The record is a 106-nucleotide RNA sequence from Sagittula marina, which matches "TPP riboswitch aptamer (THI element)" in Rfam.
Rfam describes the family as follows. Vitamin B(1) in its active form thiamin pyrophosphate (TPP) is an essential coenzyme that is synthesised by coupling of pyrimidine and thiazole moieties in bacteria. The previously detected thiamin-regulatory element, thi box was extended, resulting in a new, highly conserved RNA secondary structure, the THI element, which is widely distributed in eubacteria and also occurs in some archaea. Analysis of operon structures identified a large number of new candidate thiamin-regulated genes, mostly transporters, in various prokaryotic organisms. The THI element is a riboswitch that directly binds to TPP to regulate gene expression through a variety of mechanisms in archaea, bacteria and eukaryotes. through a variety of mechanisms in archaea, bacteria and eukaryotes. Tandem TPP riboswitches have been reported where both TPP riboswitches respond independently to TPP. The structure of TPP riboswitch has been reported for Escherichia coli and Arabidopsis thaliana.
Pairs were carried over by alignment from the consensus structure, which is taken from published work.

[Rfam]
RNA sequence: GCAUAUAACCGGGGGUGCUCCGAGCGGAGCUGAGAUGCGCGACAUGCGUGAACCCUUCACAGCUGAUCUGGAUAAUGCCAGCGGAGCGAGGUGCUACCAUGUUCAU
Numbered sequence: 001g002c003a004u005a006u007a008a009c010c011g012g013g014g015g016u017g018c019u020c021c022g023a024g025c026g027g028a029g030c031u032g033a034g035a036u037g038c039g040c041g042a043c044a045u046g047c048g049u050g051a052a053c054c055c056u057u058c059a060c061a062g063c064u065g066a067u068c069u070g071g072a073u074a075a076u077g078c079c080a081g082c083g084g085a086g087c088g089a090g091g092u093g094c095u096a097c098c099a100u101g102u103u104c105a106u
Stems, first nucleotide, its partner, number of pairs: 008092003011056004016050001017030005037049005062087003068081004